Overview:
This 204-nucleotide sequence from Okeania hirsuta belongs to the Rfam family "Group I catalytic intron". About the family: Group I catalytic introns are large self-splicing ribozymes. They catalyse their own excision from mRNA, tRNA and rRNA precursors in a wide range of organisms. The core secondary structure consists of 9 paired regions (P1-P9). These fold to essentially two domains - the P4-P6 domain (formed from the stacking of P5, P4, P6 and P6a helices) and the P3-P9 domain (formed from the P8, P3, P7 and P9 helices). The organism belongs to Okeania, within Bacteria. A search with the family's covariance model found it, with a score of 61 bits. The base pairs follow the family's consensus structure, which is taken from published work. For this family Rfam cites "Self-splicing of group I introns" (Cech, Annu Rev Biochem, 1990).
RNA sequence: AGUUAUACCUUGUAAGGGGCGGCAUACGAAGAAAUUUGUAUGUGAUUACUUGUCAAAUUCGGGGAAACCGUUAGCGGGGUAAUCCCGAGCCAAGCUCCGAAUUAAAGGAGAAGGUGUAGAGACUGGUUGGCAAGUACCCUAGCAGUUCUAGUUUGAUAGAAGCUGAGGGUAAAGGGACAGUCCAGACUACAAACUAAUUCUGAU
Numbered sequence: 001a002g003u004u005a006u007a008c009c010u011u012g013u014a015a016g017g018g019g020c021g022g023c024a025u026a027c028g029a030a031g032a033a034a035u036u037u038g039u040a041u042g043u044g045a046u047u048a049c050u051u052g053u054c055a056a057a058u059u060c061g062g063g064g065a066a067a068c069c070g071u072u073a074g075c076g077g078g079g080u081a082a083u084c085c086c087g088a089g090c091c092a093a094g095c096u097c098c099g100a101a102u103u104a105a106a107g108g109a110g111a112a113g114g115u116g117u118a119g120a121g122a123c124u125g126g127u128u129g130g131c132a133a134g135u136a137c138c139c140u141a142g143c144a145g146u147u148c149u150a151g152u153u154u155g156a157u158a159g160a161a162g163c164u165g166a167g168g169g170u171a172a173a174g175g176g177a178c179a180g181u182c183c184a185g186a187c188u189a190c191a192a193a194c195u196a197a198u199u200c201u202g203a204u
Base pairs, nucleotide, nucleotide: 005025006024008022009021011019029037030036048135049134050133051132052131054129055128059088060087061086062085063084064083068079069078071076089115090114095110096109097108098107119183121182122181123180124179125178137169138168139167140166142164190202192199193198